Shown here is a 145-nucleotide RNA from Gossypium gossypioides, a member of the family "MIR7502 microRNA precursor family". Its family is annotated with RISC complex and miRNA-mediated post-transcriptional gene silencing in the Gene Ontology. NCBI's taxonomy places the organism under Eukaryota, Streptophyta, Embryophyta, Spermatophyta, Gossypium.
[Rfam]
RNA sequence: UGUUAAAAAUUUCAUCCACUUGUUCUGUUAAAAACUGGUGUGGCUAACGGAAUAACCAAACAGUGACACAUGGCAUACCAUGUGUACCUCAUGCUAACAUAUGGGGACUAGUUUUUAAUAGCAAAAUUGGAUAUAAUUUUUAACA
Numbered sequence: 001u002g003u004u005a006a007a008a009a010u011u012u013c014a015u016c017c018a019c020u021u022g023u024u025c026u027g028u029u030a031a032a033a034a035c036u037g038g039u040g041u042g043g044c045u046a047a048c049g050g051a052a053u054a055a056c057c058a059a060a061c062a063g064u065g066a067c068a069c070a071u072g073g074c075a076u077a078c079c080a081u082g083u084g085u086a087c088c089u090c091a092u093g094c095u096a097a098c099a100u101a102u103g104g105g106g107a108c109u110a111g112u113u114u115u116u117a118a119u120a121g122c123a124a125a126a127u128u129g130g131a132u133a134u135a136a137u138u139u140u141u142a143a144c145a
Base pairs, nucleotide, nucleotide: 002144003143004142005141006140007139008138009137010136011135014132015131016130018128020126021125023123025121026120028118029117030116031115032114033113